Annotation:
Shown here is a 68-nucleotide RNA from Pseudokineococcus marinus, a member of the family "ASdes TB sRNA". The family's RNA type in Rfam is small RNA.
Nucleotides: 068
Base pairs, nucleotide, nucleotide: 005062006061008059009058012029013028016026017025018024035056036055037054038053040052041051042050043049044048
Number, partner (000 for none) and nucleotide at each position: 001000a002000g003000c004000u005062c006061g007000a008059c009058g010000g011000g012029g013028u014000c015000g016026g017025u018024g019000c020000c021000c022000c023000g024018c025017g026016u027000g028013a029012c030000g031000a032000c033000g034000a035056g036055g037054u038053a039000g040052u041051c042050g043049c044048g045000c046000a047000g048044c049043g050042c051041g052040a053038u054037g055036c056035c057000g058009u059008g060000g061006c062005g063000u064000c065000c066000c067000u068000c